RNA sequence: UUACCGGUGGUCUCUAAUUCGCUUGGUGCAGGUCGGGAACUGAUUAGCUUCGCUUGCAUAUGUAUGUAUAUAUAUAUAUUCUCUUUAUCAAUGGCCAGAUGGCGAGAAUUGAUUGGUUGAGAUUUGACAGAAGCGAAUUGGAUCCCGCCUUGCAUCAACUGAAUCGGAGACCGCGGUGAAG
Numbered sequence: 001u002u003a004c005c006g007g008u009g010g011u012c013u014c015u016a017a018u019u020c021g022c023u024u025g026g027u028g029c030a031g032g033u034c035g036g037g038a039a040c041u042g043a044u045u046a047g048c049u050u051c052g053c054u055u056g057c058a059u060a061u062g063u064a065u066g067u068a069u070a071u072a073u074a075u076a077u078a079u080u081c082u083c084u085u086u087a088u089c090a091a092u093g094g095c096c097a098g099a100u101g102g103c104g105a106g107a108a109u110u111g112a113u114u115g116g117u118u119g120a121g122a123u124u125u126g127a128c129a130g131a132a133g134c135g136a137a138u139u140g141g142a143u144c145c146c147g148c149c150u151u152g153c154a155u156c157a158a159c160u161g162a163a164u165c166g167g168a169g170a171c172c173g174c175g176g177u178g179a180a181g
Stems, first nucleotide, its partner, number of pairs: 013168002017164004023158010034147005040141006
Dot-bracket structure: ............((..((((..((((((((((.(((((.((((((..........................................................................................)))))).))))).))))))))))..))))..)).............